The family of this 73-nucleotide RNA from Conger conger is "mir-23 microRNA precursor family".
Pairs were carried over by alignment from the consensus structure, which was predicted with PFOLD.
Lineage of the source: Eukaryota > Opisthokonta > Eumetazoa > Bilateria > Conger.
Its family is annotated with gene silencing by miRNA and RISC complex in the Gene Ontology.
[Rfam]
RNA sequence: AGCCAGGGGAGUUCCUGGCAGAGUGAUUUCGGAAUCAGGACUGAAUCACAUUGCCAGGGAUUUCCAAUGGCCG
Numbered sequence: 001a002g003c004c005a006g007g008g009g010a011g012u013u014c015c016u017g018g019c020a021g022a023g024u025g026a027u028u029u030c031g032g033a034a035u036c037a038g039g040a041c042u043g044a045a046u047c048a049c050a051u052u053g054c055c056a057g058g059g060a061u062u063u064c065c066a067a068u069g070g071c072c073g
Base pairs, nucleotide, nucleotide: 002072004070006068009065011061012060013059014058015057016056017055018054019053020052021051023049024048025047026046027045028044029043